The family of this 143-nucleotide RNA sequence from Drosophila virilis is "Small nucleolar RNA psi18S-1377". From the family's description: psi18S-1377 is a member of the H/ACA class of snoRNA. This family is responsible for guiding the modification of uridines 1377 and 1279 to pseudouridine in Drosophila 18S rRNA. It is annotated as an H/ACA-box small nucleolar RNA.
RNA sequence: CCGUUCUUGUGUUAUUCCCUGAAUUUAUCUCUCUAAUCAGAGGAUGUCAAACAGAACGCAAAGUGAAUAACAAGCCCGCUUACUCCACAUUGUAGAGCCUAUCGAAACCUAGGCUUCUACAUAACUUACCGCCGGCCACAUGC
Numbered sequence: 001c002c003g004u005u006c007u008u009g010u011g012u013u014a015u016u017c018c019c020u021g022a023a024u025u026u027a028u029c030u031c032u033c034u035a036a037u038c039a040g041a042g043g044a045u046g047u048c049a050a051a052c053a054g055a056a057c058g059c060a061a062a063g064u065g066a067a068u069a070a071c072a073a074g075c076c077c078g079c080u081u082a083c084u085c086c087a088c089a090u091u092g093u094a095g096a097g098c099c100u101a102u103c104g105a106a107a108c109c110u111a112g113g114c115u116u117c118u119a120c121a122u123a124a125c126u127u128a129c130c131g132c133c134g135g136c137c138a139c140a141u142g143c
Base pairs, nucleotide, nucleotide: 002058003057004056005055006054007053010049011048016043017042019040020039021038022037091121092120093119096115097114098113099112
About this RNA
Pairs were carried over by alignment from the consensus structure, which was predicted with RNAalifold.